Ma3 gene ribosomal frameshift signal: a 60-nucleotide RNA sequence from Chelydra serpentina. The family's consensus secondary structure is taken from published work. The organism belongs to Chelydra, within Eukaryota. A search with the family's covariance model found it, with a score of 35 bits. By type it is a frameshift element. Gene Ontology term of the family: translational frameshifting.

RNA sequence: GGGAAACACCAACAGGGCUUGGGAAAGAAGCAACCCAAGACCCUAAAAUUCCAAGGCUCC
Dot-bracket structure: .............((((((((((.....[[[..)))))).))))..........].]]..